Shown here is a 90-nucleotide sequence from Anolis carolinensis, a member of the family "mir-191 microRNA precursor family". Lineage of the source: Eukaryota > Sauria > Unidentata > Episquamata > Anolis. Gene Ontology terms of the family: miRNA-mediated post-transcriptional gene silencing and RISC complex. The family's consensus secondary structure was predicted with RNAalifold. Rfam's curators put it in the seed alignment. A reference for the family is Kim et al. (2004), "Identification of many microRNAs that copurify with polyribosomes in mammalian neurons", Proc Natl Acad Sci U S A.
[Rfam]
RNA sequence: GUUUGAUAGUGGGCAACGGAAUCCCAAAAGCAGCUGUUUUCCUCUUAAAGUUCCAGCUGCACUUGGAUUUCGUUCCUUGCUUUCCUACCC
Dot-bracket structure: .......(((((...(((((((((.((..(((((((.................)))))))..)))))))))))...))))).........